RNA sequence: UGUUCCCUGUGAUGUUGGCGUACAAGUUACGUCCCUGAGCCGAUAAACUUUUUACCAGGAAUUCAGUUUAAUUUUCUAUUGAGCAAGCUUGGCAUGUACCGAGAAGCCUACGGAAAAUAUCUGAGCUCCGACCUGAGCCAUUGGGUUCAGGACCAAUACUUGAAACCGCAUCUUGGGGAACAC
Numbered sequence: 001u002g003u004u005c006c007c008u009g010u011g012a013u014g015u016u017g018g019c020g021u022a023c024a025a026g027u028u029a030c031g032u033c034c035c036u037g038a039g040c041c042g043a044u045a046a047a048c049u050u051u052u053u054a055c056c057a058g059g060a061a062u063u064c065a066g067u068u069u070a071a072u073u074u075u076c077u078a079u080u081g082a083g084c085a086a087g088c089u090u091g092g093c094a095u096g097u098a099c100c101g102a103g104a105a106g107c108c109u110a111c112g113g114a115a116a117a118u119a120u121c122u123g124a125g126c127u128c129c130g131a132c133c134u135g136a137g138c139c140a141u142u143g144g145g146u147u148c149a150g151g152a153c154c155a156a157u158a159c160u161u162g163a164a165a166c167c168g169c170a171u172c173u174u175g176g177g178g179a180a181c182a183c
Base pairs, nucleotide, nucleotide: 002181003180004179005178006177007176008175009174011172012171013170014169015168017167018166031153032152033151034150036149037148038147039146040145041144058129059128060127062125063124064123065122066121069119071118072117073116074115075114076113077112083107084106088103089102090101091100092099
Annotation:
The record is a 183-nucleotide RNA from Pseudoalteromonas denitrificans, which matches "6S / SsrS RNA" in Rfam. Lineage of the source: Bacteria > Pseudomonadati > Gammaproteobacteria > Alteromonadales > Pseudoalteromonas denitrificans. The base pairs follow the family's consensus structure, which is taken from published work. A search with the family's covariance model found it, with a score of 102 bits. It is annotated as a non-coding RNA gene. E. coli 6S RNA was the first non coding RNA to be sequenced, but its function was unknown until recently. On this family, see Barrick et al., RNA 2005: "6S RNA is a widespread regulator of eubacterial RNA polymerase that resembles an open promoter".